A member of the RNA family "MIR394 microRNA precursor family" from Musa troglodytarum, 113 nucleotides long.
[Rfam]
RNA sequence: CUUGCAGAGGUUAUUGGCAUUCUGUCCACCUCCAUCCACCACUUCUCUAUCUCUCAUCAACAAGGAGAAUCAUAUAGACGGAGGUGGGCAUCCUGCCAAGUGAACUCUGAUAG
Numbered sequence: 001c002u003u004g005c006a007g008a009g010g011u012u013a014u015u016g017g018c019a020u021u022c023u024g025u026c027c028a029c030c031u032c033c034a035u036c037c038a039c040c041a042c043u044u045c046u047c048u049a050u051c052u053c054u055c056a057u058c059a060a061c062a063a064g065g066a067g068a069a070u071c072a073u074a075u076a077g078a079c080g081g082a083g084g085u086g087g088g089c090a091u092c093c094u095g096c097c098a099a100g101u102g103a104a105c106u107c108u109g110a111u112a113g
Stems, first nucleotide, its partner, number of pairs: 011103001014099006023090011
Pairs were carried over by alignment from the consensus structure, which was predicted with WAR.